[Rfam]
RNA: c-di-AMP riboswitch aptamer (ydaO/yuaA leader)
RNA sequence: CUAAAUGAAACGCUGAAUUUCUUGUCUUAAGAAAUCGGGGGAACCACUAGUAAUGGCAAGCAGGCGGUAAGCAAGACUCACCGUCGCGGUCAUUGGGGUGAAUCUUGAAGAAAGGCAGGCCGCGCGCGGCUUUGCAGCUCUUCAGGUAGGGCGACUCUCACGCCCGAAUCCGGCAGCUAACCUCGUAAGCGUAAUCGAGAGAGGCG
Number, nucleotide and partner (000 for none) at each position: 001c000002u000003a000004a000005a000006u000007g000008a000009a000010a000011c191012g190013c189014u188015g000016a000017a000018u034019u033020u032021c031022u030023u000024g000025u000026c000027u000028u000029a000030a022031g021032a020033a019034a018035u000036c185037g184038g183039g182040g181041g000042a000043a000044c000045c095046a094047c000048u000049a000050g000051u000052a000053a000054u000055g000056g000057c000058a000059a000060g000061c000062a000063g000064g000065c000066g000067g000068u000069a000070a000071g000072c000073a000074a000075g000076a000077c000078u000079c000080a000081c000082c000083g000084u000085c000086g000087c000088g000089g000090u000091c000092a000093u000094u046095g045096g171097g170098g169099u000100g000101a000102a000103u000104c146105u145106u144107g143108a142109a141110g140111a139112a000113a000114g000115g000116c000117a000118g000119g000120c000121c000122g000123c000124g000125c000126g000127c000128g000129g000130c000131u000132u000133u000134g000135c000136a000137g000138c000139u111140c110141u109142u108143c107144a106145g105146g104147u000148a000149g165150g164151g163152c162153g000154a000155c000156u000157c000158u000159c000160a000161c000162g152163c151164c150165c149166g000167a000168a000169u098170c097171c096172g000173g000174c000175a000176g000177c000178u000179a000180a000181c040182c039183u038184c037185g036186u000187a000188a014189g013190c012191g011192u000193a000194a000195u000196c000197g000198a000199g000200a000201g000202a000203g000204g000205c000206g000